[Rfam]
Nucleotides: 067
Base pairs, nucleotide, nucleotide: 009062010061011060012059016057017056018055021053022052023051024050028046030044031043032042033041034040
Number, partner (000 for none) and nucleotide at each position: 001000u002000g003000u004000c005000a006000a007000g008000a009062g010061u011060u012059u013000a014000g015000g016057c017056g018055c019000c020000g021053u022052u023051u024050g025000g026000g027000c028046g029000a030044g031043u032042g033041g034040a035000u036000u037000u038000c039000u040034u041033u042032u043031g044030c045000c046028u047000u048000a049000g050024c051023g052022a053021a054000a055018g056017u057016g058000a059012a060011g061010g062009c063000a064000g065000a066000u067000g